RNA sequence: UUAGAAAGUUUAUAUUAUAUGCGUAUAAUUUAGGGGAUAUGGCCCAAAGUUUCUACCAGACUACCGUAAAUGGUCUGACUACGCGGAUUUAGUAAUGAGAA
Numbered sequence: 001u002u003a004g005a006a007a008g009u010u011u012a013u014a015u016u017a018u019a020u021g022c023g024u025a026u027a028a029u030u031u032a033g034g035g036g037a038u039a040u041g042g043c044c045c046a047a048a049g050u051u052u053c054u055a056c057c058a059g060a061c062u063a064c065c066g067u068a069a070a071u072g073g074u075c076u077g078a079c080u081a082c083g084c085g086g087a088u089u090u091a092g093u094a095a096u097g098a099g100a101a
Base pairs, nucleotide, nucleotide: 018087020085021084022083023082024081025080029048030047031046033045034044035043057077058076059075060074061073062072063071
Rfam assigns this 101-nucleotide RNA sequence from Ornithinibacillus caprae to the family "Purine riboswitch aptamer". The match comes from Rfam's covariance-model search (80 bits). The organism belongs to Ornithinibacillus, within Bacteria.